[Rfam]
Rfam assigns this 134-nucleotide RNA to the family "Small nucleolar RNA SNORA42/SNORA80 family". The members of this family belong to the H/ACA class of snoRNAs that guide the sites of modification of uridines to pseudouridines. Human ACA42 (SNORA42) was cloned from HeLa cells by immunoprecipitation with anti-GAR1 antibody. The family's RNA type in Rfam is H/ACA-box small nucleolar RNA.

RNA sequence: GCAUGGUAGUGGGUUCAUUGGGGGCCCUUCUCUGUGGGCCUCAUAGCGUACCCAUGCCAGUGUAAACUUGAGCCUUGAACCAUUGCCCAGCCUCCUUCCCAUGGGCUGUGUGUAGCGAAGGGGGUUGCACAGUG
Numbered sequence: 001g002c003a004u005g006g007u008a009g010u011g012g013g014u015u016c017a018u019u020g021g022g023g024g025c026c027c028u029u030c031u032c033u034g035u036g037g038g039c040c041u042c043a044u045a046g047c048g049u050a051c052c053c054a055u056g057c058c059a060g061u062g063u064a065a066a067c068u069u070g071a072g073c074c075u076u077g078a079a080c081c082a083u084u085g086c087c088c089a090g091c092c093u094c095c096u097u098c099c100c101a102u103g104g105g106c107u108g109u110g111u112g113u114a115g116c117g118a119a120g121g122g123g124g125u126u127g128c129a130c131a132g133u134g
Stems, first nucleotide, its partner, number of pairs: 001057004005052004015046001017044002022041003025037002071126005081117001086112001088108006